[Rfam]
RNA sequence: CAAAGGUGCAUUGUAGUCGCAUUGUCUGUGCUGUUUUCGUUGCUGUUGGUAUUCAGCCAGUACUUCUGCAAUGCAAACUUUG
Numbered sequence: 001c002a003a004a005g006g007u008g009c010a011u012u013g014u015a016g017u018c019g020c021a022u023u024g025u026c027u028g029u030g031c032u033g034u035u036u037u038c039g040u041u042g043c044u045g046u047u048g049g050u051a052u053u054c055a056g057c058c059a060g061u062a063c064u065u066c067u068g069c070a071a072u073g074c075a076a077a078c079u080u081u082g
Stems, first nucleotide, its partner, number of pairs: 001082004006078001007075010019063001021061004026056002